[Rfam]
RNA sequence: CAAUAAUUUUGGCAAACCUAUUGAAAGAUAGGGACGCAAAGCUAUGAAUCUAAAGUGAUUAUUCUUAUUUAUGAUAAUCACAAUGAUAGUCAAGCUGCUAUG
Dot-bracket structure: ...........((...((((((....))))))...))..((((.((((((....(((((((((.........)))))))))...)))..)))))))......
About this RNA: The record is a 102-nucleotide RNA from Paratissierella segnis, which matches "c-di-GMP-I riboswitch aptamer" in Rfam. About the family: GEMM was predicted in a large-scale screen for bacterial structured RNA regulatory elements.